[Rfam]
RNA sequence: CAAUCGUCACAACGGCUUCCUGGCGUGGCGGUGAAACACAAUGGAGCA
Numbered sequence: 001c002a003a004u005c006g007u008c009a010c011a012a013c014g015g016c017u018u019c020c021u022g023g024c025g026u027g028g029c030g031g032u033g034a035a036a037c038a039c040a041a042u043g044g045a046g047c048a
Stems, first nucleotide, its partner, number of pairs: 004031007013022002015047003019044002

The record is a 48-nucleotide RNA sequence from Roseovarius tolerans, which matches "SAM/SAH riboswitch aptamer" in Rfam. The organism belongs to Roseovarius, within Bacteria.